[Rfam]
RNA: Histidine operon leader
RNA sequence: UCAUCAUCACCAUCAUCCCUAAGUUGUCUUUCGGGAGAUGUACGCAUACCCGGGAGGCAGGACUCUCCCGGUGGUUACAUGAAAAGUAUUUUAAGAUUUCAGACCCUCGGGAGACCAAUCUCUCGAGGGUUUUUUACU
Dot-bracket structure: ........(.((((..(((.(.........).))).))))......).((.((((((......)))))))).............................(((((((((((((......)))))))))))))......